[Rfam]
RNA sequence: UCGUACUAGCUGGGGAGUUAGCGGUGCCCUAUAACCUGCAAUCCGCUAUAGCAGGAGUGAAUUCCUUGUUUAGGCUAUAGUUUGUUUGGUCUGGCUUAUAUAAGUGGCGUUGAGAACUGGGUCCCACGCAACAGAGAUUCGUGAACCUCGUCAGGUCUGGAAGGAAGCAGCGAUAAGCGAACCCCUCUGUGUGCCGUGGAUCAAUCUGGUUUGAGUUAACUGUAUGAGUAACGCUUAUAAACUAUAAGUCGACACAAGGUGUACGA
Numbered sequence: 001u002c003g004u005a006c007u008a009g010c011u012g013g014g015g016a017g018u019u020a021g022c023g024g025u026g027c028c029c030u031a032u033a034a035c036c037u038g039c040a041a042u043c044c045g046c047u048a049u050a051g052c053a054g055g056a057g058u059g060a061a062u063u064c065c066u067u068g069u070u071u072a073g074g075c076u077a078u079a080g081u082u083u084g085u086u087u088g089g090u091c092u093g094g095c096u097u098a099u100a101u102a103a104g105u106g107g108c109g110u111u112g113a114g115a116a117c118u119g120g121g122u123c124c125c126a127c128g129c130a131a132c133a134g135a136g137a138u139u140c141g142u143g144a145a146c147c148u149c150g151u152c153a154g155g156u157c158u159g160g161a162a163g164g165a166a167g168c169a170g171c172g173a174u175a176a177g178c179g180a181a182c183c184c185c186u187c188u189g190u191g192u193g194c195c196g197u198g199g200a201u202c203a204a205u206c207u208g209g210u211u212u213g214a215g216u217u218a219a220c221u222g223u224a225u226g227a228g229u230a231a232c233g234c235u236u237a238u239a240a241a242c243u244a245u246a247a248g249u250c251g252a253c254a255c256a257a258g259g260u261g262u263a264c265g266a
Stems, first nucleotide, its partner, number of pairs: 001266006009058003012030004017025003035055005064259006073250004079243007088234001092230002096227006104220002106217003114212009124199005129191002132189005138181005148173004156165003